Shown here is a 207-nucleotide sequence from Streptomyces sp. SID8352, a member of the family "Actinobacteria sRNA Ms_IGR-5". The organism belongs to Streptomyces, within Bacteria.
RNA sequence: ACUUCGGAAAGGAGGUGGUUCGGCAGAUGAGCAACGACCGGACGGAAGAGGUGGCCGCGGGCUAGCGGCCCGUCACCACACCUGUGCGGUGCCGGACCAGCGCGCGAGCGCGCAGCCGGCCAGUCCAUCGCAGUCACCCGACCCGCGAGUCGCCGGUACGUCCGGCCGGCUCCUCCCCGGAGGAACCCGACUCGCGGGUCGCCUGCG
Numbered sequence: 001a002c003u004u005c006g007g008a009a010a011g012g013a014g015g016u017g018g019u020u021c022g023g024c025a026g027a028u029g030a031g032c033a034a035c036g037a038c039c040g041g042a043c044g045g046a047a048g049a050g051g052u053g054g055c056c057g058c059g060g061g062c063u064a065g066c067g068g069c070c071c072g073u074c075a076c077c078a079c080a081c082c083u084g085u086g087c088g089g090u091g092c093c094g095g096a097c098c099a100g101c102g103c104g105c106g107a108g109c110g111c112g113c114a115g116c117c118g119g120c121c122a123g124u125c126c127a128u129c130g131c132a133g134u135c136a137c138c139c140g141a142c143c144c145g146c147g148a149g150u151c152g153c154c155g156g157u158a159c160g161u162c163c164g165g166c167c168g169g170c171u172c173c174u175c176c177c178c179g180g181a182g183g184a185a186c187c188c189g190a191c192u193c194g195c196g197g198g199u200c201g202c203c204u205g206c207g
Stems, first nucleotide, its partner, number of pairs: 015058005060121004065116002068113002071110001073107002139201013152170006
Dot-bracket structure: ..............(((((..................................))))).((((.((.((.(.((...............................))..).)).)).)))).................(((((((((((((((((((.......))))))..................)))))))))))))......
The literature on the family includes a 2013 paper in RNA by Li et al., "Identification of small RNAs in Mycobacterium smegmatis using heterologous Hfq".